[Rfam]
RNA sequence: GUCCGUUCAUCCCAAUAGGGACGCAUGACACCCAAGCAUGGAACGGGGCUUGGU
Numbered sequence: 001g002u003c004c005g006u007u008c009a010u011c012c013c014a015a016u017a018g019g020g021a022c023g024c025a026u027g028a029c030a031c032c033c034a035a036g037c038a039u040g041g042a043a044c045g046g047g048g049c050u051u052g053g054u
Stems, first nucleotide, its partner, number of pairs: 004045005010021004032053006

Shown here is a 54-nucleotide RNA sequence, a member of the family "Glutamine-II riboswitch aptamer". For this family Rfam cites "Structure and ligand binding of the glutamine-II riboswitch" (Huang et al., Nucleic Acids Res, 2019). The family's consensus secondary structure is taken from published work. Rfam links the family to the GO term glutamine binding.